[Rfam]
The record is a 377-nucleotide part of an RNA from Bisgaardia hudsonensis, which matches "Bacterial large subunit ribosomal RNA" in Rfam. NCBI's taxonomy places the organism under Bacteria, Pseudomonadati, Gammaproteobacteria, Pasteurellales, Bisgaardia. Pairs were carried over by alignment from the consensus structure, which is taken from published work. The literature on the family includes a 2001 paper in Science by Yusupov et al., "Crystal structure of the ribosome at 5.5 A resolution".
RNA sequence: GAUAAAACGAGUGAAAAACUCGUUCGCCGGAAGACCAAGGGUUCCUGUCCAACGUUAAUCGGGGCAGGGUGAGUCGGCCCCUAAGGCGAGGCUGAAAAGCGUAGUCGAUGGGAAACGGGUUAAUAUUCCCGUACUUGGAUAAACUGCGAUGUGGGGACGGAGAAGGUUAGGUUAGCAGACUAUUGGAUGUCUGUUUAAGGCGGUAGGUGGGUAUCUUAGGCAAAUCCGGGAUACCUUAACACUGAGAACUGAUGACGAGUUUCUACGGAAACGAAGUAACUGAUACCAUGCUUCCAGGAAAAGCCACUAAGCUCUAGGUUUAUCUAAACCGUACUGAAAACCGACACAGGUGGUCAGGUAGAGAAUACUCAGGCGCU
Numbered sequence: 001g002a003u004a005a006a007a008c009g010a011g012u013g014a015a016a017a018a019c020u021c022g023u024u025c026g027c028c029g030g031a032a033g034a035c036c037a038a039g040g041g042u043u044c045c046u047g048u049c050c051a052a053c054g055u056u057a058a059u060c061g062g063g064g065c066a067g068g069g070u071g072a073g074u075c076g077g078c079c080c081c082u083a084a085g086g087c088g089a090g091g092c093u094g095a096a097a098a099g100c101g102u103a104g105u106c107g108a109u110g111g112g113a114a115a116c117g118g119g120u121u122a123a124u125a126u127u128c129c130c131g132u133a134c135u136u137g138g139a140u141a142a143a144c145u146g147c148g149a150u151g152u153g154g155g156g157a158c159g160g161a162g163a164a165g166g167u168u169a170g171g172u173u174a175g176c177a178g179a180c181u182a183u184u185g186g187a188u189g190u191c192u193g194u195u196u197a198a199g200g201c202g203g204u205a206g207g208u209g210g211g212u213a214u215c216u217u218a219g220g221c222a223a224a225u226c227c228g229g230g231a232u233a234c235c236u237u238a239a240c241a242c243u244g245a246g247a248a249c250u251g252a253u254g255a256c257g258a259g260u261u262u263c264u265a266c267g268g269a270a271a272c273g274a275a276g277u278a279a280c281u282g283a284u285a286c287c288a289u290g291c292u293u294c295c296a297g298g299a300a301a302a303g304c305c306a307c308u309a310a311g312c313u314c315u316a317g318g319u320u321u322a323u324c325u326a327a328a329c330c331g332u333a334c335u336g337a338a339a340a341c342c343g344a345c346a347c348a349g350g351u352g353g354u355c356a357g358g359u360a361g362a363g364a365a366u367a368c369u370c371a372g373g374c375g376c377u
Stems, first nucleotide, its partner, number of pairs: 006024006025375004033355004039335002044068006053061002075331003080111002085106003089102001091100003115132005135327011146312002151307004159294004165287003170281005175194006195255002199250002206243003211234007219227002259272005341350002357369004